[Rfam]
RNA sequence: CUUCGUUCUCAGGGCGGGGUGGAAGUCCCCACCGGCGGUGAUGGUCGCAAUGUCCGAAGGGCAUGCGGCCGAGCCCGCGAGCGCCCGGCAGUCCGCCGCCGGGGUCAGCAGAUCCGGUGCGAUCCCGGAGCCGACGGUCACAGUCCGGAUGGAAGAGAGCGAGC
Dot-bracket structure: ..((((((((......(((.......))).[[((((((..................................[[))))..((.........................))...(((((.......)))))]])).(((.....]]))).......))))))))..
Numbered sequence: 001c002u003u004c005g006u007u008c009u010c011a012g013g014g015c016g017g018g019g020u021g022g023a024a025g026u027c028c029c030c031a032c033c034g035g036c037g038g039u040g041a042u043g044g045u046c047g048c049a050a051u052g053u054c055c056g057a058a059g060g061g062c063a064u065g066c067g068g069c070c071g072a073g074c075c076c077g078c079g080a081g082c083g084c085c086c087g088g089c090a091g092u093c094c095g096c097c098g099c100c101g102g103g104g105u106c107a108g109c110a111g112a113u114c115c116g117g118u119g120c121g122a123u124c125c126c127g128g129a130g131c132c133g134a135c136g137g138u139c140a141c142a143g144u145c146c147g148g149a150u151g152g153a154a155g156a157g158a159g160c161g162a163g164c
Stems, first nucleotide, its partner, number of pairs: 003162008017029003031144002033133002035078004073131002081109002113129005135147003